[Rfam]
This 168-nucleotide sequence from Salinispira pacifica belongs to the Rfam family "Group II catalytic intron D1-D4-3". The base pairs follow the family's consensus structure.
RNA sequence: CAGCUGGCAACGGUUGGGUCUGAAGGAAGCAAUAGGAAGUGAACAGCACAUAGCGAAAGCGAACCUGAUACGGCACAACAGGGGUGGUAAGCGUGCAAAAUAGCGCGAAGCCCGAAACCUGAACAGACCUGUAGUGUGUUUGAGGAUGGCGUUGUUUACAGGGACUGC
Numbered sequence: 001c002a003g004c005u006g007g008c009a010a011c012g013g014u015u016g017g018g019u020c021u022g023a024a025g026g027a028a029g030c031a032a033u034a035g036g037a038a039g040u041g042a043a044c045a046g047c048a049c050a051u052a053g054c055g056a057a058a059g060c061g062a063a064c065c066u067g068a069u070a071c072g073g074c075a076c077a078a079c080a081g082g083g084g085u086g087g088u089a090a091g092c093g094u095g096c097a098a099a100a101u102a103g104c105g106c107g108a109a110g111c112c113c114g115a116a117a118c119c120u121g122a123a124c125a126g127a128c129c130u131g132u133a134g135u136g137u138g139u140u141u142g143a144g145g146a147u148g149g150c151g152u153u154g155u156u157u158a159c160a161g162g163g164a165c166u167g168c
Stems, first nucleotide, its partner, number of pairs: 001016006029168003033164001041157006049148003064145003068141001073137003078132004083128001086112003091106004